[Rfam]
RNA sequence: GGAAGUUCUCAGGUGACGCACCCUGGAAUCGGGCUUCCUUCUCUCUGGUUCUGGGUUGUAUCACCUGAGAACCACU
Numbered sequence: 001g002g003a004a005g006u007u008c009u010c011a012g013g014u015g016a017c018g019c020a021c022c023c024u025g026g027a028a029u030c031g032g033g034c035u036u037c038c039u040u041c042u043c044u045c046u047g048g049u050u051c052u053g054g055g056u057u058g059u060a061u062c063a064c065c066u067g068a069g070a071a072c073c074a075c076u
Base pairs, nucleotide, nucleotide: 002075005072006071007070008069009068010067011066012065013064014063015062016061019058020057022055023054025052026051027050028049029048030047031046032045033044
mir-9223 microRNA precursor family: a 76-nucleotide RNA sequence from Myotis brandtii.
Lineage of the source: Eukaryota > Gnathostomata > Boreoeutheria > Yangochiroptera > Myotis.